[Rfam]
Description
The family of this 76-nucleotide sequence from Cloeon dipterum is "mir-971 microRNA precursor family". The source organism's lineage runs through Eukaryota, Metazoa, Allotriocarida, Insecta and Cloeon.

RNA sequence: CCGUCCGCGCACUCUAAGAUUGAACACCAAGCUCGGAUGAUUCUGUUUGGUGUUCUACCUUACAGUGAGCGGCCUG
Numbered sequence: 001c002c003g004u005c006c007g008c009g010c011a012c013u014c015u016a017a018g019a020u021u022g023a024a025c026a027c028c029a030a031g032c033u034c035g036g037a038u039g040a041u042u043c044u045g046u047u048u049g050g051u052g053u054u055c056u057a058c059c060u061u062a063c064a065g066u067g068a069g070c071g072g073c074c075u076g
Base pairs, nucleotide, nucleotide: 006071007070008069010067011066012065013064015062016061017060025052026051027050028049029048030047031046032045